RNA sequence: AUAAGCCUAUGAUGGAUGGUGAGUUAUCCCUGUCUGAAAAUUUCAACUGAGGGAAAAGACUCUGUUCUGAGGCUUAG
Number, nucleotide and partner (000 for none) at each position: 001a000002u076003a075004a074005g073006c072007c071008u000009a000010u000011g000012a000013u000014g000015g000016a000017u000018g000019g000020u000021g000022a000023g000024u000025u000026a000027u000028c000029c000030c000031u000032g000033u000034c000035u000036g000037a000038a000039a000040a000041u000042u000043u000044c000045a000046a000047c000048u000049g000050a000051g000052g000053g000054a000055a000056a000057a000058g000059a000060c000061u000062c000063u000064g000065u000066u000067c000068u000069g000070a000071g007072g006073c005074u004075u003076a002077g000
Description:
This 77-nucleotide RNA from Peromyscus maniculatus belongs to the Rfam family "Small nucleolar RNA R38". snoR38 is a C/D box small nucleolar RNA conserved across yeast, human, Arabidopsis and rice. It is encoded in the intron of elongation factor-1 gamma in both pombe and cerevisiae. snoR38 guides the methylation of 2'-O-ribose sites in 28S rRNA. The source organism's lineage runs through Eukaryota, Gnathostomata, Euteleostomi, Muroidea and Peromyscus maniculatus.